RNA sequence: CGAAAUCUCAAAGGAGUGAUAUGAGAACACAGAUCCUCUGGUUUCCUUAAGAUUUUUCACUGAAACAAUCGUGUUUGUGUUCUCAGGUCACCCCUUUGAAUCUCCC
Number, nucleotide and partner (000 for none) at each position: 001c000002g000003a000004a000005a000006u000007c000008u099009c000010a000011a096012a095013g094014g093015a000016g091017u090018g089019a088020u000021a000022u000023g084024a083025g082026a081027a080028c079029a078030c077031a076032g075033a000034u000035c000036c000037u000038c000039u000040g000041g000042u000043u000044u000045c000046c000047u000048u000049a000050a000051g000052a000053u000054u000055u000056u000057u000058c000059a000060c000061u000062g000063a000064a000065a000066c000067a000068a000069u000070c000071g000072u000073g000074u000075u032076u031077g030078u029079g028080u027081u026082c025083u024084c023085a000086g000087g000088u019089c018090a017091c016092c000093c014094c013095u012096u011097u000098g000099a008100a000101u000102c000103u000104c000105c000106c000

MIR398 microRNA precursor family: a 106-nucleotide sequence from Eutrema salsugineum. The literature on the family includes a 2004 paper in Mol Cell by Jones-Rhoades and Bartel, "Computational identification of plant microRNAs and their targets, including a stress-induced miRNA". Rfam links the family to the GO terms miRNA-mediated post-transcriptional gene silencing and RISC complex.